[Rfam]
RNA: c-di-AMP riboswitch aptamer (ydaO/yuaA leader)
RNA sequence: CGGGGACCGCCGCCUAAUCGCAUAACGCGCGAGCCGGGGAUCCACAUUUCUUCCGGGGCGAAUCCGCAUCCCGCGGUAGGGAUCUCCUUCAUCCCGAGCCCGUCAGCUAACCCGGCCGGCGGCCGACGGAAGGAAAC
Dot-bracket structure: ..........((((...(((.........)))((((((....(...........)(((.....((((.....))))..((((.........))))...))).........)))))).))))................
Numbered sequence: 001c002g003g004g005g006a007c008c009g010c011c012g013c014c015u016a017a018u019c020g021c022a023u024a025a026c027g028c029g030c031g032a033g034c035c036g037g038g039g040a041u042c043c044a045c046a047u048u049u050c051u052u053c054c055g056g057g058g059c060g061a062a063u064c065c066g067c068a069u070c071c072c073g074c075g076g077u078a079g080g081g082a083u084c085u086c087c088u089u090c091a092u093c094c095c096g097a098g099c100c101c102g103u104c105a106g107c108u109a110a111c112c113c114g115g116c117c118g119g120c121g122g123c124c125g126a127c128g129g130a131a132g133g134a135a136a137c
Stems, first nucleotide, its partner, number of pairs: 011121004018032003033116006043055001056101003064076004079095004